[Rfam]
RNA sequence: CAGACGACCCUGCUGGGCUACCUGACCCCCGACCUGGUAGCCCAGCAGGGUCUUUGC
Numbered sequence: 001c002a003g004a005c006g007a008c009c010c011u012g013c014u015g016g017g018c019u020a021c022c023u024g025a026c027c028c029c030c031g032a033c034c035u036g037g038u039a040g041c042c043c044a045g046c047a048g049g050g051u052c053u054u055u056g057c
Base pairs, nucleotide, nucleotide: 003055004054007051008050009049010048011047012046013045014044015043016042017041018040019039020038021037022036
A member of the RNA family "F6 TB sRNA" from Rhodococcus sp. SMB37, 57 nucleotides long. Pairs were carried over by alignment from the consensus structure, which is taken from published work. It scores 52 bits against the family's covariance model. The organism belongs to Rhodococcus, within Bacteria. Rfam 15.1 lists 310 matches to the family in 304 species.